[Rfam]
RNA sequence: UUAAUUCGAAUUUGUAUGCAGGUUGAACAGCGCCCCUAGUGACAAACGUAGGCAAAAGUUCCAACUCUAUACAAAUUUAAGUUA
Numbered sequence: 001u002u003a004a005u006u007c008g009a010a011u012u013u014g015u016a017u018g019c020a021g022g023u024u025g026a027a028c029a030g031c032g033c034c035c036c037u038a039g040u041g042a043c044a045a046a047c048g049u050a051g052g053c054a055a056a057a058g059u060u061c062c063a064a065c066u067c068u069a070u071a072c073a074a075a076u077u078u079a080a081g082u083u084a
Base pairs, nucleotide, nucleotide: 008078009077010076011075012074013073014072015071016070018068020066021065023063025061026060027059028058034052035051039047040046
Description: The record is an 84-nucleotide RNA from Bombyx mori, which matches "mir-2807 microRNA precursor family" in Rfam. It scores 60 bits against the family's covariance model. Its family is annotated with RISC complex and miRNA-mediated post-transcriptional gene silencing in the Gene Ontology. The base pairs follow the family's consensus structure, which was predicted with RNAalifold. The family has 8 seed sequences and 5,120 matches in Rfam 15.1.